[Rfam]
RNA: Actinobacteria sRNA Ms_IGR-7
RNA sequence: CGAAGUGCCCUCCCGAGCCGGAAGAUGGAAGCGUCCCAACUCCUAUCCUUUCAGCUCAGAGGGCACCCUCUAUCUCCGGGCUUCCGUAGAGCCGACCCUCAUCGGUGGAUCGAG
Dot-bracket structure: .(..((((((((..((.(.(((.(((.(.((........)).).)))..))).).)).))))))))..).......................(((...(((....))).)))..